RNA sequence: UAAGAGUAAUCCGAAAAUCUUAAAGAGUAGGAG
Numbered sequence: 001u002a003a004g005a006g007u008a009a010u011c012c013g014a015a016a017a018u019c020u021u022a023a024a025g026a027g028u029a030g031g032a033g
Stems, first nucleotide, its partner, number of pairs: 002021004010032003
Dot-bracket structure: .((((....[[[.....))))........]]].
RNA: DUF805b RNA